[Rfam]
RNA: sok antitoxin (CssrC)
Nucleotides: 153
Stems, first nucleotide, its partner, number of pairs: 001059003005056004011050013026034002060080001063077001065074001081120005089113001091111006124145003
Number, partner (000 for none) and nucleotide at each position: 001059g002058g003057g004000u005056g006055c007054u008053u009000g010000a011050g012049a013048c014047u015046u016045u017044u018043c019042g020041u021040c022039u023038u024000g025000g026034g027033c028000a029000u030000u031000g032000u033027g034026u035000g036000g037000c038023a039022a040021g041020g042019c043018g044017g045016a046015a047014a048013g049012u050011u051000g052000a053008a054007a055006g056005c057003c058002c059001c060080a061000a062000a063077c064000u065074g066000a067000c068000g069000u070000u071000a072000a073000c074065u075000c076000a077063g078000a079000a080060u081120g082119g083118g084117g085116c086000a087000a088000c089113c090000a091111a092110u093109a094108a095107c096106g097000c098000c099000u100000a101000g102000a103000c104000a105000c106096c107095g108094u109093u110092a111091u112000g113089g114000u115000a116085g117084c118083c119082c120081c121000u122000u123000c124145a125144c126143a127000g128000c129000a130000a131000g132000g133000a134000g135000g136000c137000a138000a139000g140000c141000c142000a143126u144125g145124u146000a147000u148000a149000a150000a151000a152000a153000a